Rfam assigns this 126-nucleotide sequence from Vulpes vulpes to the family "Small nucleolar RNA SNORA28".
It is annotated as an H/ACA-box small nucleolar RNA.
Its family is annotated with nucleolus and RNA processing in the Gene Ontology.
The literature on the family includes a 2001 paper in EMBO J by Huttenhofer et al., "RNomics: an experimental approach that identifies 201 candidates for novel, small, non-messenger RNAs in mouse".
Taxonomically the source falls in Vulpes (Eukaryota, Eumetazoa, Deuterostomia, Boreoeutheria).
The family has 26 seed sequences and 922 matches in Rfam 15.1.
From the family's description: ACA28 is a member of the H/ACA class of snoRNA that guide the sites of modification of uridines to pseudouridines.
It scores 133 bits against the family's covariance model.

RNA sequence: AAGCGACACUCUGUGGCAGAUGACCAAAAUUGUCUGACACAAUAUGAGCUUGCUAUAGCAAGAAGAUCUAACCUAUUCCAGUGUUUUCUCCUCCAUGAGACCAAUUGUUAUAUAGAUUUAAAAAGU
Number, nucleotide and partner (000 for none) at each position: 001a000002a000003g000004c000005g000006a000007c000008a000009c048010u047011c046012u041013g040014u039015g038016g000017c036018a035019g034020a033021u032022g031023a000024c000025c000026a000027a000028a000029a000030u000031u022032g021033u020034c019035u018036g017037a000038c015039a014040c013041a012042a000043u000044a000045u000046g011047a010048g009049c000050u000051u000052g000053c000054u000055a000056u000057a000058g000059c000060a000061a000062g000063a000064a119065g118066a117067u116068c115069u114070a113071a000072c000073c000074u112075a111076u110077u000078c000079c107080a106081g105082u104083g000084u000085u000086u000087u100088c099089u098090c097091c000092u000093c000094c000095a000096u000097g090098a089099g088100a087101c000102c000103a000104a082105u081106u080107g079108u000109u000110a076111u075112a074113u070114a069115g068116a067117u066118u065119u064120a000121a000122a000123a000124a000125g000126u000